[Rfam]
RNA sequence: AAAGACAAGUAGAAGCACCCGCUUCUCACCUGUUCGACGCCAUCAGGCAGUUGGCUGGUUUUAACCGAUUCAUAUAGACGAUUGGAGAAGUGUGGGUGCUGUAUUGCCCACGCUUUUUUUAGACG
Numbered sequence: 001a002a003a004g005a006c007a008a009g010u011a012g013a014a015g016c017a018c019c020c021g022c023u024u025c026u027c028a029c030c031u032g033u034u035c036g037a038c039g040c041c042a043u044c045a046g047g048c049a050g051u052u053g054g055c056u057g058g059u060u061u062u063a064a065c066c067g068a069u070u071c072a073u074a075u076a077g078a079c080g081a082u083u084g085g086a087g088a089a090g091u092g093u094g095g096g097u098g099c100u101g102u103a104u105u106g107c108c109c110a111c112g113c114u115u116u117u118u119u120u121a122g123a124c125g
Base pairs, nucleotide, nucleotide: 011026012025013024014023015022016021028059029058030057036052037051038050039048040047091112092111093110094109095108096107097106098105
RNA: Ribosomal protein L20 leader
Organism: Virgibacillus pantothenticus